[Rfam]
Shown here is a 92-nucleotide RNA from Microcaecilia unicolor, a member of the family "mir-1684 microRNA precursor family". The source organism's lineage runs through Eukaryota, Metazoa, Vertebrata, Gnathostomata and Microcaecilia.
RNA sequence: GAGAAUGGAUGAGGAUACCAACUGUUUUAUAUUUAUUCACAUAAUUUUUUAAGUGAAUAAAUAUAAAACAGUUGGUAUCCUCAUCCAUUCUC
Dot-bracket structure: .((..((.(((((((((((((.((((((((((.((.((((............)))).)).)))))))))).))))))))))))).))..)).